[Rfam]
RNA sequence: UAGUGCUUAUAGCUCUUUUUGAAUUUGUCUAGUAGGUCUUCUAGUUUUCACCAGAAGACCCGG
Dot-bracket structure: ..................................((((((((.((....)).))))))))...
A member of the RNA family "U7 small nuclear RNA" from Molossus molossus, 63 nucleotides long. Pairs were carried over by alignment from the consensus structure, which was predicted with PFOLD. On this family, see Spycher et al., Nucleic Acids Res 1994: "3' end processing of mouse histone pre-mRNA: evidence for additional base-pairing between U7 snRNA and pre-mRNA". From the family's description: Animal histone pre-mRNAs are spliced by a different mechanism than nuclear pre-mRNAs and self-splicing introns. This processing involves the U7 snRNP, which contains only one RNA species: U7. The 5' end of U7 RNA is thought to base-pair to a conserved spacer element downstream of the cleavage site in histone pre-mRNA. This family contains a number of annotated U7 pseudogenes. Lineage of the source: Eukaryota > Gnathostomata > Dipnotetrapodomorpha > Chiroptera > Molossus.